[Rfam]
RNA sequence: UACACUACAAUACCAAGAGAGUAGUAGCAGUCACUUUUUACUGUGAGUAACUGCAACAUCUCUCGGUAUUGUAAGGUUC
Dot-bracket structure: .((..(((((((((.((((....((.(((((.((((........)))).))))).))..)))).)))))))))..))..
Annotation
The record is a 79-nucleotide sequence from Peromyscus maniculatus, which matches "mir-883 microRNA precursor family" in Rfam. Pairs were carried over by alignment from the consensus structure, which was predicted with RNAalifold. Rfam 15.1 lists 10 matches to the family in 8 species. Gene Ontology terms of the family: miRNA-mediated post-transcriptional gene silencing and RISC complex. The organism belongs to Peromyscus maniculatus, within Eukaryota.